[Rfam]
RNA sequence: CGAGUAAGCCAGACAAUCGCUGCUGAUUUAAAUCAGGAGAGGAAAGUCCGAGCUCCAUAGGGCAGGGUGCUGGGUAAUACCCAGUCAGGGCGACUUGAAGGAUAGUGCAACAGAGAUAUACCGCCGAGAUUUUCUCGGCAAGGGUGGAAAGGCGAGGUAAGAGCUCACCAGCACAUGGGUGACUAUGUGGCUAUGUAAACCCCACCUGGAGCAAGAUCGAAUAGGAGAGCGUUAAGGGGCUGCCCGUCCCGCUCUCGGGUAGUAUCGCUAGAGUGUAAUGGUAACAUUGCGCGUAGAUAGAUGAUUGUCUAAUACAGAACUCGGCUUAUAGGCUUGGUCGUGCC
Numbered sequence: 001c002g003a004g005u006a007a008g009c010c011a012g013a014c015a016a017u018c019g020c021u022g023c024u025g026a027u028u029u030a031a032a033u034c035a036g037g038a039g040a041g042g043a044a045a046g047u048c049c050g051a052g053c054u055c056c057a058u059a060g061g062g063c064a065g066g067g068u069g070c071u072g073g074g075u076a077a078u079a080c081c082c083a084g085u086c087a088g089g090g091c092g093a094c095u096u097g098a099a100g101g102a103u104a105g106u107g108c109a110a111c112a113g114a115g116a117u118a119u120a121c122c123g124c125c126g127a128g129a130u131u132u133u134c135u136c137g138g139c140a141a142g143g144g145u146g147g148a149a150a151g152g153c154g155a156g157g158u159a160a161g162a163g164c165u166c167a168c169c170a171g172c173a174c175a176u177g178g179g180u181g182a183c184u185a186u187g188u189g190g191c192u193a194u195g196u197a198a199a200c201c202c203c204a205c206c207u208g209g210a211g212c213a214a215g216a217u218c219g220a221a222u223a224g225g226a227g228a229g230c231g232u233u234a235a236g237g238g239g240c241u242g243c244c245c246g247u248c249c250c251g252c253u254c255u256c257g258g259g260u261a262g263u264a265u266c267g268c269u270a271g272a273g274u275g276u277a278a279u280g281g282u283a284a285c286a287u288u289g290c291g292c293g294u295a296g297a298u299a300g301a302u303g304a305u306u307g308u309c310u311a312a313u314a315c316a317g318a319a320c321u322c323g324g325c326u327u328a329u330a331g332g333c334u335u336g337g338u339c340g341u342g343c344c
Base pairs, nucleotide, nucleotide: 001340002339003338005336006335007334008333009332010331011329012309013308014307015306016305017304018303020039021038023036024035025034026033027032044327045326046325048324049323050322051321052320053211054210055209056208060245061244062243063242065207066206067205068204069203070084071083072082073081074080085099086097087096088095089094100202101201105200106199107196108195109194121143122142123139124138125137126136127135128134129133151169152168154166155165156164171191172189173188174187175186176185177184178183215266216265217264218262225256226255227254228253229252230251236250237249238248239247240246273292274291275290276289277288278287279286280285
Shown here is a 344-nucleotide RNA from Clostridium niameyense, a member of the family "Bacterial RNase P class A".
Rfam classes the family as a ribozyme.
About the family: Ribonuclease P (RNase P) is a ubiquitous endoribonuclease, found in archaea, bacteria and eukarya as well as chloroplasts and mitochondria.
The family's consensus secondary structure is taken from published work.
NCBI's taxonomy places the organism under Bacteria, Bacillota, Clostridia, Eubacteriales, Clostridium.